[Rfam]
A member of the RNA family "MIR7502 microRNA precursor family" from Gossypium armourianum, 132 nucleotides long. It scores 82 bits against the family's covariance model. The organism belongs to Gossypium, within Eukaryota. Rfam links the family to the GO terms RISC complex and miRNA-mediated post-transcriptional gene silencing.
RNA sequence: UGUUAAAAAUUUCAUCCACUUGUACUGUUAAAAACUAGCGUGGUUGAUAGACUAACCAAACAAUGAUAUUAGCAUGCCAUGUUGACAUAUAAAGUCCAAUUUUCAACAAUUGAAAUGGGUAAAUUUUUAACA
Numbered sequence: 001u002g003u004u005a006a007a008a009a010u011u012u013c014a015u016c017c018a019c020u021u022g023u024a025c026u027g028u029u030a031a032a033a034a035c036u037a038g039c040g041u042g043g044u045u046g047a048u049a050g051a052c053u054a055a056c057c058a059a060a061c062a063a064u065g066a067u068a069u070u071a072g073c074a075u076g077c078c079a080u081g082u083u084g085a086c087a088u089a090u091a092a093a094g095u096c097c098a099a100u101u102u103u104c105a106a107c108a109a110u111u112g113a114a115a116u117g118g119g120u121a122a123a124u125u126u127u128u129a130a131c132a
Stems, first nucleotide, its partner, number of pairs: 002131011014120003018116001020114002024110001026108001028106002031103003